[Rfam]
RNA: Bacterial RNase P class A
RNA sequence: AUUGCAAGUCGGCUCAUCGCUCUGAUUCCAUCAUUACAGGAGUCAGAGAGGAAAGUCCGGGCAGCGUAGAGCGCCGCACUUCCUAACAGGAAGGAGCCUAUUCAGGAAUGGAUAGGCGACAGAUAGUGCCACAGAAAACAAACUUCCCUUUUGGUUUUUCAAAUGGGUAAAGGUGAAAAGGUGAGGUAAGAGCUCACCGGCUCUUGUGUGAGCAAGAGUGCAUGGUAAACCUUGCGGGCUGAAAGGCCAAAUAGGUUCUGCUCUAAGGGUUGCUCGCCCAAAUGCAGAAUGGGUAGGCUGAUGGAUCCUGAUGGUGACGUCAGGACUAGAUAAAUGAUGAGCAUUCUGCUCCGGUGAUUAUCGGAGUGGGAUACAGGACCCGGCUUACAGACUUGCUUUUUUU
Numbered sequence: 001a002u003u004g005c006a007a008g009u010c011g012g013c014u015c016a017u018c019g020c021u022c023u024g025a026u027u028c029c030a031u032c033a034u035u036a037c038a039g040g041a042g043u044c045a046g047a048g049a050g051g052a053a054a055g056u057c058c059g060g061g062c063a064g065c066g067u068a069g070a071g072c073g074c075c076g077c078a079c080u081u082c083c084u085a086a087c088a089g090g091a092a093g094g095a096g097c098c099u100a101u102u103c104a105g106g107a108a109u110g111g112a113u114a115g116g117c118g119a120c121a122g123a124u125a126g127u128g129c130c131a132c133a134g135a136a137a138a139c140a141a142a143c144u145u146c147c148c149u150u151u152u153g154g155u156u157u158u159u160c161a162a163a164u165g166g167g168u169a170a171a172g173g174u175g176a177a178a179a180g181g182u183g184a185g186g187u188a189a190g191a192g193c194u195c196a197c198c199g200g201c202u203c204u205u206g207u208g209u210g211a212g213c214a215a216g217a218g219u220g221c222a223u224g225g226u227a228a229a230c231c232u233u234g235c236g237g238g239c240u241g242a243a244a245g246g247c248c249a250a251a252u253a254g255g256u257u258c259u260g261c262u263c264u265a266a267g268g269g270u271u272g273c274u275c276g277c278c279c280a281a282a283u284g285c286a287g288a289a290u291g292g293g294u295a296g297g298c299u300g301a302u303g304g305a306u307c308c309u310g311a312u313g314g315u316g317a318c319g320u321c322a323g324g325a326c327u328a329g330a331u332a333a334a335u336g337a338u339g340a341g342c343a344u345u346c347u348g349c350u351c352c353g354g355u356g357a358u359u360a361u362c363g364g365a366g367u368g369g370g371a372u373a374c375a376g377g378a379c380c381c382g383g384c385u386u387a388c389a390g391a392c393u394u395g396c397u398u399u400u401u402u403u
Base pairs, nucleotide, nucleotide: 001399004396005395006394007393008392009391010390011388012342013341014340015339016338017337018336020048021047022046023045024044025043026042027041028040053386054385055384057383058382059381060380061379062241063240064239065238069275070274071273072272074237075236076235077234078233079093080092081091082090083089094120096117097116098115099114100113101112102111103110104109121232122231126230127229128226129225130224143172144171146167147166148165150163151162152161153160180198181197182196183195184194185193199221200219201218202217203216204215205214206213207212245299246298247297248296255290256289257288258287259286260285267279268278269277270276306325307324308323309322310321311320312319313318